[Rfam]
RNA sequence: AUAUUUUCAACGGCACUAUUUUAUAGGAGGACAACAUCAUGCCAUUACUACAAGGAAUAACUUACUAAGGUUUGGCACGUUGUCGUCUCACGGACAAGUGACAAAUCUGCUGAUCACUUGUCCGAAUGCUUUAUUAGACCUGGCAUUCGCUAGGUUUUUUUACGCCUAUUCGGACAGA
Numbered sequence: 001a002u003a004u005u006u007u008c009a010a011c012g013g014c015a016c017u018a019u020u021u022u023a024u025a026g027g028a029g030g031a032c033a034a035c036a037u038c039a040u041g042c043c044a045u046u047a048c049u050a051c052a053a054g055g056a057a058u059a060a061c062u063u064a065c066u067a068a069g070g071u072u073u074g075g076c077a078c079g080u081u082g083u084c085g086u087c088u089c090a091c092g093g094a095c096a097a098g099u100g101a102c103a104a105a106u107c108u109g110c111u112g113a114u115c116a117c118u119u120g121u122c123c124g125a126a127u128g129c130u131u132u133a134u135u136a137g138a139c140c141u142g143g144c145a146u147u148c149g150c151u152a153g154g155u156u157u158u159u160u161u162a163c164g165c166c167u168a169u170u171c172g173g174a175c176a177g178a
Base pairs, nucleotide, nucleotide: 003134009131012130013129014128015127016026017025018024019023027089028088029087030084031083032082033081034080035079040077041076042075043074044073055063056062091124092123093122094121095120096119097118098117099116100115136157137156138155139154140153141152142151143150144149165173166172